[Rfam]
RNA sequence: CAACCCAUGCAGUGAUGUAUGGCUGAACUUUGAGAAGUCAGCAGACGUCAUAGUACCAAGAUAGAUGCAUAUAUCUUGGGAAGGAU
Dot-bracket structure: ((..(((((((....))))))).))...........(((....)))(((......((((((((........))))))))....)))
RNA: Group II catalytic intron D1-D4-1